[Rfam]
RNA: Fluoride riboswitch aptamer (crcB RNA motif)
RNA sequence: ACUUUUCCCGGCGAUGGAGUUCGCCACAACCGCUUGCAAAAGCUGAUGACUCCUACCUUUCA
Numbered sequence: 001a002c003u004u005u006u007c008c009c010g011g012c013g014a015u016g017g018a019g020u021u022c023g024c025c026a027c028a029a030c031c032g033c034u035u036g037c038a039a040a041a042g043c044u045g046a047u048g049a050c051u052c053c054u055a056c057c058u059u060u061c062a
Stems, first nucleotide, its partner, number of pairs: 010025004016053006032043004